[Rfam]
RNA sequence: AUGCUGCUCUCUGGAGAGAUCACAUUAUGUGACGCCGAAGGGUUAAGGUCAGAAAGACUGAUAUCUCAGGCACAAAGGACGGAGUGUUAAAA
Numbered sequence: 001a002u003g004c005u006g007c008u009c010u011c012u013g014g015a016g017a018g019a020u021c022a023c024a025u026u027a028u029g030u031g032a033c034g035c036c037g038a039a040g041g042g043u044u045a046a047g048g049u050c051a052g053a054a055a056g057a058c059u060g061a062u063a064u065c066u067c068a069g070g071c072a073c074a075a076a077g078g079a080c081g082g083a084g085u086g087u088u089a090a091a092a
Stems, first nucleotide, its partner, number of pairs: 006087002009084005020032004034071003037067002041065003047058001
Record summary
This 92-nucleotide sequence from Treponema rectale belongs to the Rfam family "Glycine riboswitch aptamer". A search with the family's covariance model found it, with a score of 53 bits. Lineage of the source: Bacteria > Spirochaetia > Treponematales > Treponemataceae > Treponema.